[Rfam]
RNA sequence: CCGCCACUUCAACAUGGAGGCAUUUGCUGAAACCUGACAAGUAAGUGCUUCCAUGUUUUAGUGUGG
Numbered sequence: 001c002c003g004c005c006a007c008u009u010c011a012a013c014a015u016g017g018a019g020g021c022a023u024u025u026g027c028u029g030a031a032a033c034c035u036g037a038c039a040a041g042u043a044a045g046u047g048c049u050u051c052c053a054u055g056u057u058u059u060a061g062u063g064u065g066g
Stems, first nucleotide, its partner, number of pairs: 002066001005063004011057018
Overview:
The family of this 66-nucleotide RNA from Rhinolophus ferrumequinum is "mir-302 microRNA precursor family". A search with the family's covariance model found it, with a score of 61 bits. The literature on the family includes a 2004 paper in Dev Biol by Suh et al., "Human embryonic stem cells express a unique set of microRNAs". Pairs were carried over by alignment from the consensus structure, which was predicted with RNAalifold. Rfam links the family to the GO terms miRNA-mediated post-transcriptional gene silencing and RISC complex.